This 85-nucleotide RNA from Zoogloea ramigera belongs to the Rfam family "c-di-GMP-I riboswitch aptamer".
Its family is annotated with cyclic-di-GMP binding in the Gene Ontology.
The source organism's lineage runs through Bacteria, Pseudomonadati, Betaproteobacteria, Zoogloeaceae and Zoogloea.
The base pairs follow the family's consensus structure, which is taken from published work.
A search with the family's covariance model found it, with a score of 61 bits.
[Rfam]
RNA sequence: GUCAGAGAAAAGCAAACGGGGUGUAAGCCCCGGACGCAAAGCCUCGGGCCCCAACCAGAUCAUGGCGGGUGGCCGGGUUGCCUCA
Numbered sequence: 001g002u003c004a005g006a007g008a009a010a011a012g013c014a015a016a017c018g019g020g021g022u023g024u025a026a027g028c029c030c031c032g033g034a035c036g037c038a039a040a041g042c043c044u045c046g047g048g049c050c051c052c053a054a055c056c057a058g059a060u061c062a063u064g065g066c067g068g069g070u071g072g073c074c075g076g077g078u079u080g081c082c083u084c085a
Base pairs, nucleotide, nucleotide: 012037013036017032018031019030020029021028022027040079041078042077043076045075046074047073048070049069050068055065056064057063